[Rfam]
RNA sequence: AGGUGAGGUAGAGGAGCGGAGAAUCAAGAGUAGUAUACUGUAGGUUUUAAGGAACCGUUGAUAGUAUAUGAAAGGGAUAAAUCCGCCGAAGCGUGCAAAUACCUUAAUAUUUGCAAAGCUGGGCCUAUGCUUAAGAAGUAUAGGACUGUCACAAGUAGCUACCCUAAUUACUUGUGAAGAGCUAUCUCGCUU
Number, nucleotide and partner (000 for none) at each position: 001a000002g000003g000004u000005g000006a187007g186008g185009u184010a183011g182012a000013g000014g000015a000016g086017c085018g084019g083020a082021g000022a000023a078024u077025c076026a000027a000028g000029a000030g000031u000032a000033g069034u068035a067036u066037a065038c064039u063040g062041u000042a000043g000044g000045u000046u000047u000048u000049a000050a000051g000052g000053a000054a000055c000056c000057g000058u000059u000060g000061a000062u040063a039064g038065u037066a036067u035068a034069u033070g000071a000072a000073a000074g000075g000076g025077a024078u023079a000080a000081a000082u020083c019084c018085g017086c016087c000088g000089a000090a120091g119092c118093g000094u115095g114096c113097a112098a111099a110100u109101a108102c000103c000104u000105u000106a000107a000108u101109a100110u099111u098112u097113g096114c095115a094116a000117a000118g092119c091120u090121g147122g146123g000124c144125c143126u142127a141128u140129g139130c138131u137132u000133a000134a000135g000136a000137a131138g130139u129140a128141u127142a126143g125144g124145a000146c122147u121148g000149u177150c176151a175152c174153a173154a172155g171156u170157a169158g168159c000160u000161a000162c000163c000164c000165u000166a000167a000168u158169u157170a156171c155172u154173u153174g152175u151176g150177a149178a000179g000180a000181g000182c011183u010184a009185u008186c007187u006188c000189g000190c000191u000192u000
A member of the RNA family "Lysine riboswitch aptamer" from Thermoanaerobacterium sp. RBIITD, 192 nucleotides long. NCBI's taxonomy places the organism under Bacteria, Bacillati, Bacillota, Thermoanaerobacteraceae, Thermoanaerobacterium.